RNA sequence: CGACAGGUUAAAGCGCCUGAACUACCAUCUGGAGCGAACGGAUUGUAGUUGACGAGGAGGAGGUUUAUCGAAAGUUCGGCGGAUGCCUCCCGAUGUCGCACAGCAUUGUAACGUGAAGUCUUAAACCAUUGGGGUGACCUGAUGCACAAAGGACGGAACAUGUGCAACC
Numbered sequence: 001c002g003a004c005a006g007g008u009u010a011a012a013g014c015g016c017c018u019g020a021a022c023u024a025c026c027a028u029c030u031g032g033a034g035c036g037a038a039c040g041g042a043u044u045g046u047a048g049u050u051g052a053c054g055a056g057g058a059g060g061a062g063g064u065u066u067a068u069c070g071a072a073a074g075u076u077c078g079g080c081g082g083a084u085g086c087c088u089c090c091c092g093a094u095g096u097c098g099c100a101c102a103g104c105a106u107u108g109u110a111a112c113g114u115g116a117a118g119u120c121u122u123a124a125a126c127c128a129u130u131g132g133g134g135u136g137a138c139c140u141g142a143u144g145c146a147c148a149a150a151g152g153a154c155g156g157a158a159c160a161u162g163u164g165c166a167a168c169c
Stems, first nucleotide, its partner, number of pairs: 020050006027043001029041001059090005068079004091108006113159002118154002127144007
The record is a 169-nucleotide RNA sequence from Mangrovibacillus cuniculi, which matches "glmS glucosamine-6-phosphate activated ribozyme aptamer" in Rfam. The family's RNA type in Rfam is riboswitch. This entry contains a glucosamine-6-phosphate activated ribozyme that is found in the mRNA for GlmS. GlmS is an enzyme that uses fructose-6-phosphate and glutamine to generate glucosamine-6-phosphate. The ribozyme catalyses self cleavage of the glmS mRNA that is thought to regulate GlmS activity.